[Rfam]
RNA: U1 spliceosomal RNA
RNA sequence: AUACUUACCUGGAUGGGGUCAAUGGGUGAUCAAGAAGGCCCAUGGCCUAGGAUUGUGACCUCCAUUGCACUUUGGAGGGGUGCAGGCCUAAGGUCUCCUCAAGUAGGAGAGCCUACAUCAUAAUUUGUGGUAGUGGGGCCUGCGUUCGCGCGGCCCCCUU
Numbered sequence: 001a002u003a004c005u006u007a008c009c010u011g012g013a014u015g016g017g018g019u020c021a022a023u024g025g026g027u028g029a030u031c032a033a034g035a036a037g038g039c040c041c042a043u044g045g046c047c048u049a050g051g052a053u054u055g056u057g058a059c060c061u062c063c064a065u066u067g068c069a070c071u072u073u074g075g076a077g078g079g080g081u082g083c084a085g086g087c088c089u090a091a092g093g094u095c096u097c098c099u100c101a102a103g104u105a106g107g108a109g110a111g112c113c114u115a116c117a118u119c120a121u122a123a124u125u126u127g128u129g130g131u132a133g134u135g136g137g138g139c140c141u142g143c144g145u146u147c148g149c150g151c152g153g154c155c156c157c158c159u160u
Base pairs, nucleotide, nucleotide: 012119013118014117015116016048017047018046019045020044021043023042024041025040026039027038049089050088051087053086055083056082057081059079060078061077062075063074091114092113093112094110095109096108098106099105135158136157137156138155141152142151143150144149